The family of this 220-nucleotide RNA sequence is "Clostridiales-3 RNA". The family's RNA type in Rfam is small RNA. The family's consensus secondary structure is taken from published work.
RNA sequence: AUGAGAAUCGAGGAACUUAACGGUGAAGGUGCUUAGCGAGUACGACAGAUAUGUGGCGGAUGGAUAAUGAACCACGGGGGAUAUGAAAAAUGUCCCUAUCCUCAAAAUGGCAAAAGAGGAAAUCAUCCUGAUUGAUCAGGGUGUUGUGAAUGCGAGAGCAGCCGAGCAGCAGUUCCCAGUAUGCGGGCAACGAGGAUGUGAGAAAUCACGCAUACAUACA
Numbered sequence: 001a002u003g004a005g006a007a008u009c010g011a012g013g014a015a016c017u018u019a020a021c022g023g024u025g026a027a028g029g030u031g032c033u034u035a036g037c038g039a040g041u042a043c044g045a046c047a048g049a050u051a052u053g054u055g056g057c058g059g060a061u062g063g064a065u066a067a068u069g070a071a072c073c074a075c076g077g078g079g080g081a082u083a084u085g086a087a088a089a090a091u092g093u094c095c096c097u098a099u100c101c102u103c104a105a106a107a108u109g110g111c112a113a114a115a116g117a118g119g120a121a122a123u124c125a126u127c128c129u130g131a132u133u134g135a136u137c138a139g140g141g142u143g144u145u146g147u148g149a150a151u152g153c154g155a156g157a158g159c160a161g162c163c164g165a166g167c168a169g170c171a172g173u174u175c176c177c178a179g180u181a182u183g184c185g186g187g188c189a190a191c192g193a194g195g196a197u198g199u200g201a202g203a204a205a206u207c208a209c210g211c212a213u214a215c216a217u218a219c220a
Stems, first nucleotide, its partner, number of pairs: 007030003015024003073148003077097008099120005121145003125142007151160003179215007198206002